[Rfam]
RNA sequence: AAUGCGGUAACCGAAAAGCAAAUAGAGUAGGUA
Numbered sequence: 001a002a003u004g005c006g007g008u009a010a011c012c013g014a015a016a017a018g019c020a021a022a023u024a025g026a027g028u029a030g031g032u033a
Stems, first nucleotide, its partner, number of pairs: 003020003010032003

Record summary: The family of this 33-nucleotide RNA sequence from Flavobacterium psychrophilum is "DUF805b RNA". NCBI's taxonomy places the organism under Bacteria, Flavobacteriales, Flavobacteriaceae, Flavobacterium, Flavobacterium psychrophilum. The family is grouped with related families in Rfam's "DUF805 clan". The family's consensus secondary structure is taken from published work. It scores 41 bits against the family's covariance model. By type it is a cis-regulatory element.